[Rfam]
Plastid-psbA-3 3UTR RNA: a 60-nucleotide RNA from Averrhoa carambola. The base pairs follow the family's consensus structure, which was predicted with LocARNA. The family's RNA type in Rfam is cis-regulatory element. Rfam's curators put it in the seed alignment. NCBI's taxonomy places the organism under Eukaryota, Streptophytina, eudicotyledons, rosids, Averrhoa. The family is grouped with related families in Rfam's "Plastid-psbA 3UTR RNA clan". Plastid psbA-3 is a non-coding RNA (ncRNA) present in plastids. It was identified in inverted repeat sequences in the 3 prime untranslate region (3UTR) of photosystem II quinone-binding protein (psbA).
RNA sequence: AAAGGAGCAAUAACCAACCCCUUGAUAUAUCAAGAAAUUGGUUAUUGCUCCUUUAUUUUU
Numbered sequence: 001a002a003a004g005g006a007g008c009a010a011u012a013a014c015c016a017a018c019c020c021c022u023u024g025a026u027a028u029a030u031c032a033a034g035a036a037a038u039u040g041g042u043u044a045u046u047g048c049u050c051c052u053u054u055a056u057u058u059u060u
Base pairs, nucleotide, nucleotide: 001054002053003052004051005050006049007048008047009046010045011044012043013042014041021034022033023032024031